[Rfam]
RNA: Z30 small nucleolar RNA
RNA sequence: UUGCACUGAUGAUGUAGAUAUGACUGAACUGGCAUUGCUGACCUCAGGGUCGGCUCUGGCCAGGAAAUGACCUCAGUUAAUCUUCUCUCUGAGCAG
Numbered sequence: 001u002u003g004c005a006c007u008g009a010u011g012a013u014g015u016a017g018a019u020a021u022g023a024c025u026g027a028a029c030u031g032g033c034a035u036u037g038c039u040g041a042c043c044u045c046a047g048g049g050u051c052g053g054c055u056c057u058g059g060c061c062a063g064g065a066a067a068u069g070a071c072c073u074c075a076g077u078u079a080a081u082c083u084u085c086u087c088u089c090u091g092a093g094c095a096g
Stems, first nucleotide, its partner, number of pairs: 001095001003094002037054004